RNase MRP: a 232-nucleotide sequence from Arachis hypogaea. NCBI's taxonomy places the organism under Eukaryota, Tracheophyta, Euphyllophyta, rosids, Arachis. The match comes from Rfam's covariance-model search (72 bits). Rfam links the family to the GO terms ribonuclease MRP activity, ribonuclease MRP complex and rRNA processing.

RNA sequence: GGAUCACAGGUUAGCGUGGUUGGGCCAUAGCAAUGUGCAUGGCUCAGGAAAGUCCCCGGGCCAUUUUCUGCAGAGAUGCAGGCUCGGUAACGAGUAAACUUUGUGCUGACAAAUUGGCUGAGACGCGUGUUGGAGCCAUCAAUUUGUCGCCGAAGCAUAUGGCCGUACUUACAGUGAUCCACGUAGGUUAAGGGUGCUACACCAACAGAACGGGGCUUACAACCUUGUGAUC
Dot-bracket structure: .(((((((((...((((((.(((((((............)))))))...[[[.[[[[...........((((....)))).(((((....)))))...((...((.(((.((((((((......(.....)...))))...)))).))).)).)).......................)))))).(((..(......)..)))........]]]]]]].....)))))))))